[Rfam]
RNA sequence: UUCUUAUCAAGAGAGGUGGAGGGACUGGCCCGAUGAAGCCCGGCAACCACCCCAGCAAAAGGGGAAAGGUGCCAAUUCCUGAUAGAUAAGAG
Numbered sequence: 001u002u003c004u005u006a007u008c009a010a011g012a013g014a015g016g017u018g019g020a021g022g023g024a025c026u027g028g029c030c031c032g033a034u035g036a037a038g039c040c041c042g043g044c045a046a047c048c049a050c051c052c053c054a055g056c057a058a059a060a061g062g063g064g065a066a067a068g069g070u071g072c073c074a075a076u077u078c079c080u081g082a083u084a085g086a087u088a089a090g091a092g
Stems, first nucleotide, its partner, number of pairs: 001092008013041001015040003021031003025081001027079002042073004047069002050064003077084001

This 92-nucleotide sequence from Orenia metallireducens belongs to the Rfam family "SAM riboswitch aptamer (S box leader)". Its family is annotated with regulation of gene expression in the Gene Ontology. The family's consensus secondary structure is taken from published work. The match comes from Rfam's covariance-model search (82 bits). Lineage of the source: Bacteria > Bacillati > Bacillota > Halobacteroidaceae > Orenia.